The record is a 70-nucleotide sequence from Schaalia zhouxuedongae, which matches "DUF3800-IX RNA" in Rfam.
From the family's description: Actinobacteria, Firmicutes (1 example), Nitrospirae, Proteobacteria, Verrucomicrobia (1 example).
RNA sequence: CGAGGUAGCCCGAACAGUUUCCGUAUGGUGGCGUUCCAUGACAAGCUCAUGGAUAGGGCUACCUCCUGUU
Numbered sequence: 001c002g003a004g005g006u007a008g009c010c011c012g013a014a015c016a017g018u019u020u021c022c023g024u025a026u027g028g029u030g031g032c033g034u035u036c037c038a039u040g041a042c043a044a045g046c047u048c049a050u051g052g053a054u055a056g057g058g059c060u061a062c063c064u065c066c067u068g069u070u
Stems, first nucleotide, its partner, number of pairs: 002065010017032003021028002035053007